[Rfam]
RNA sequence: CUAAAGGCUCUUUUUAGAGCCACCCACCUACUUACUUAAAGAGCCU
Numbered sequence: 001c002u003a004a005a006g007g008c009u010c011u012u013u014u015u016a017g018a019g020c021c022a023c024c025c026a027c028c029u030a031c032u033u034a035c036u037u038a039a040a041g042a043g044c045c046u
Base pairs, nucleotide, nucleotide: 006021007020008019009018010017011016
The record is a 46-nucleotide RNA from Danionella cerebrum, which matches "Histone 3' UTR stem-loop" in Rfam. A search with the family's covariance model found it, with a score of 35 bits. By type it is a cis-regulatory element. The literature on the family includes a 1995 paper in Nucleic Acids Res by Williams and Marzluff, "The sequence of the stem and flanking sequences at the 3' end of histone mRNA are critical determinants for the binding of the stem-loop binding protein". The organism belongs to Danionella, within Eukaryota.